[Rfam]
RNA sequence: AGCAAGAUGAGGAGAUCCGUUUGACAGCUGAAUUUAAUGUGGAAUUUCUACAGUUCUAAUGGUCUUCAAAGUUCUCUGAUUGCU
Numbered sequence: 001a002g003c004a005a006g007a008u009g010a011g012g013a014g015a016u017c018c019g020u021u022u023g024a025c026a027g028c029u030g031a032a033u034u035u036a037a038u039g040u041g042g043a044a045u046u047u048c049u050a051c052a053g054u055u056c057u058a059a060u061g062g063u064c065u066u067c068a069a070a071g072u073u074c075u076c077u078g079a080u081u082g083c084u
Base pairs, nucleotide, nucleotide: 001084002083003082004081005080